[Rfam]
RNA sequence: AGUGGGAUAACGGGUAACACGAUGGAAGACAAGCUUUCCCUUCUGCUCGGCUUCUCAUCGUGUUACCCAACAUCUCAUC
Numbered sequence: 001a002g003u004g005g006g007a008u009a010a011c012g013g014g015u016a017a018c019a020c021g022a023u024g025g026a027a028g029a030c031a032a033g034c035u036u037u038c039c040c041u042u043c044u045g046c047u048c049g050g051c052u053u054c055u056c057a058u059c060g061u062g063u064u065a066c067c068c069a070a071c072a073u074c075u076c077a078u079c
Stems, first nucleotide, its partner, number of pairs: 002078007012068012024055005030049001032047003